[Rfam]
EcpR1: a 111-nucleotide RNA sequence from Allorhizobium borbori.

RNA sequence: UUACCCCAUGAUGCUCAGGUCCGCCGCAUCUCCUGGGUCGUGGGGCUGGUCGGCUGGUUCGCAGAUUAUACAUGGUUCCUCGUGCCAUGAUGCGCAUCGGUCGACCCCUUA
Numbered sequence: 001u002u003a004c005c006c007c008a009u010g011a012u013g014c015u016c017a018g019g020u021c022c023g024c025c026g027c028a029u030c031u032c033c034u035g036g037g038u039c040g041u042g043g044g045g046c047u048g049g050u051c052g053g054c055u056g057g058u059u060c061g062c063a064g065a066u067u068a069u070a071c072a073u074g075g076u077u078c079c080u081c082g083u084g085c086c087a088u089g090a091u092g093c094g095c096a097u098c099g100g101u102c103g104a105c106c107c108c109u110u111a
Stems, first nucleotide, its partner, number of pairs: 004045007014037006048106011

Rfam's curators write: Perviously named SmelC291, SmrC10, or Sra33. According to its overproduction phenotype it was renamed Elongated Cell Phenotype RNA1. The family's consensus secondary structure was predicted with WAR. The family's RNA type in Rfam is small RNA.